The family of this 53-nucleotide sequence from Iodidimonas gelatinilytica is "ffh sRNA". On this family, see Meyer et al., BMC Genomics 2009: "Identification of candidate structured RNAs in the marine organism 'Candidatus Pelagibacter ubique'". Rfam classes the family as a small RNA.

RNA sequence: AUAGCCAAGGGUCUCCACCAGUCAGCGAGGAUUCGCCCACUGGUGCCAUUGGU
Numbered sequence: 001a002u003a004g005c006c007a008a009g010g011g012u013c014u015c016c017a018c019c020a021g022u023c024a025g026c027g028a029g030g031a032u033u034c035g036c037c038c039a040c041u042g043g044u045g046c047c048a049u050u051g052g053u
Stems, first nucleotide, its partner, number of pairs: 016045007025036004
Dot-bracket structure: ...............(((((((..((((....))))..)))))))........

A search with the family's covariance model found it, with a score of 55 bits.